[Rfam]
RNA sequence: AAAAAGGGUCUUUGCCGUCUGUGGCACUCAGGUUCGCCUGGGCGGAAUCAAAAUCAAGAGAUUUCGGAGACGUAAUUUUUAUAUCUUGUGGCAGCUGUCGCUCUUUGCAGCACGGCGCCCGG
Numbered sequence: 001a002a003a004a005a006g007g008g009u010c011u012u013u014g015c016c017g018u019c020u021g022u023g024g025c026a027c028u029c030a031g032g033u034u035c036g037c038c039u040g041g042g043c044g045g046a047a048u049c050a051a052a053a054u055c056a057a058g059a060g061a062u063u064u065c066g067g068a069g070a071c072g073u074a075a076u077u078u079u080u081a082u083a084u085c086u087u088g089u090g091g092c093a094g095c096u097g098u099c100g101c102u103c104u105u106u107g108c109a110g111c112a113c114g115g116c117g118c119c120c121g122g
Stems, first nucleotide, its partner, number of pairs: 008071005013026005027042006043066007090119003094116005100111003103107001

This 122-nucleotide sequence from Acanthosepion pharaonis belongs to the Rfam family "U11 spliceosomal RNA". It is annotated as a spliceosomal small nuclear RNA. The family has 72 seed sequences and 2,595 matches in Rfam 15.1. Pairs were carried over by alignment from the consensus structure, which is taken from published work. The family is grouped with related families in Rfam's "U1 clan".